The family of this 201-nucleotide RNA sequence from Paenibacillus bovis is "c-di-AMP riboswitch aptamer (ydaO/yuaA leader)". Rfam describes the family as follows. This family represents a conserved RNA structure found upstream of the ydaO and yuaA genes in Bacillus subtilis and related genes in other bacteria. The source organism's lineage runs through Bacteria, Bacillota, Bacilli, Caryophanales and Paenibacillus.

[Rfam]
RNA sequence: AUUCUGUAAUUGCUGAGUUUCCGGGAUAACCGGAAAACGGGGGAACCAAUCAAGCGGGAGUACUGGCGGUGUGAGAGCCACCAUAUGUACCGCAAGGGGUGAAUCCUUUUGGCCGAUCACCAUGGUAUCGGUCUGAAGGUAGGGCGACUCUCACCGCCCGAAUCCGACAGCUAACCUCGUAAGCGCAGAUGGAGAGGGAGU
Numbered sequence: 001a002u003u004c005u006g007u008a009a010u011u012g013c014u015g016a017g018u019u020u021c022c023g024g025g026a027u028a029a030c031c032g033g034a035a036a037a038c039g040g041g042g043g044a045a046c047c048a049a050u051c052a053a054g055c056g057g058g059a060g061u062a063c064u065g066g067c068g069g070u071g072u073g074a075g076a077g078c079c080a081c082c083a084u085a086u087g088u089a090c091c092g093c094a095a096g097g098g099g100u101g102a103a104u105c106c107u108u109u110u111g112g113c114c115g116a117u118c119a120c121c122a123u124g125g126u127a128u129c130g131g132u133c134u135g136a137a138g139g140u141a142g143g144g145c146g147a148c149u150c151u152c153a154c155c156g157c158c159c160g161a162a163u164c165c166g167a168c169a170g171c172u173a174a175c176c177u178c179g180u181a182a183g184c185g186c187a188g189a190u191g192g193a194g195a196g197g198g199a200g201u
Stems, first nucleotide, its partner, number of pairs: 011185004018036007037180006047096001097165003105139004142159004